About this RNA
The family of this 209-nucleotide sequence from Streptomyces taklimakanensis is "c-di-AMP riboswitch aptamer (ydaO/yuaA leader)". The match comes from Rfam's covariance-model search (59 bits). Its family is annotated with regulation of gene expression and cyclic-di-AMP binding in the Gene Ontology.
RNA sequence: UGUCGAACGCCGAAUCCUGUCAACGGCGGCGGGCUGGACCAUCCACACCACCGAUGGCAGGAGCGGGGGACCCAAGGUAAGUGCCGGACCGUGAACCCACGGACGGCUUGGGGUGAAGCCAUGUCGCGGCCCAGCGCCGCGGCCCGCAUGGCCGGGCAACUCCAGCCCGAACCCGACAGCUCACCUCGCAGGCGUAGGAGAGGAGCACA
Numbered sequence: 001u002g003u004c005g006a007a008c009g010c011c012g013a014a015u016c017c018u019g020u021c022a023a024c025g026g027c028g029g030c031g032g033g034c035u036g037g038a039c040c041a042u043c044c045a046c047a048c049c050a051c052c053g054a055u056g057g058c059a060g061g062a063g064c065g066g067g068g069g070a071c072c073c074a075a076g077g078u079a080a081g082u083g084c085c086g087g088a089c090c091g092u093g094a095a096c097c098c099a100c101g102g103a104c105g106g107c108u109u110g111g112g113g114u115g116a117a118g119c120c121a122u123g124u125c126g127c128g129g130c131c132c133a134g135c136g137c138c139g140c141g142g143c144c145c146g147c148a149u150g151g152c153c154g155g156g157c158a159a160c161u162c163c164a165g166c167c168c169g170a171a172c173c174c175g176a177c178a179g180c181u182c183a184c185c186u187c188g189c190a191g192g193c194g195u196a197g198g199a200g201a202g203g204a205g206c207a208c209a
Base pairs, nucleotide, nucleotide: 008194009193010192011191015062016061017060018059019058020057021056022055063189064188065187066186067185068184073110074109075108076107111174112173113172119151120150121149122148123147124146154168155167156166157165